[Rfam]
RNA sequence: CUCCCAACAGUCCUCUGAUACCGCCUUCUGAAAGGAAGGACCGGAAUCAGAACUUAACCCUAAGUAUUUG
Numbered sequence: 001c002u003c004c005c006a007a008c009a010g011u012c013c014u015c016u017g018a019u020a021c022c023g024c025c026u027u028c029u030g031a032a033a034g035g036a037a038g039g040a041c042c043g044g045a046a047u048c049a050g051a052a053c054u055u056a057a058c059c060c061u062a063a064g065u066a067u068u069u070g
Base pairs, nucleotide, nucleotide: 009054010053011052015050016049017048018047

Overview: This 70-nucleotide part of an RNA from Rhexocercosporidium sp. MPI-PUGE-AT-0058 belongs to the Rfam family "Ascomycota telomerase RNA". It scores 122 bits against the family's covariance model. By type it is a non-coding RNA gene. The literature on the family includes a 2013 paper in Nucleic Acids Res by Qi et al., "The common ancestral core of vertebrate and fungal telomerase RNAs". Clan: Telomerase clan.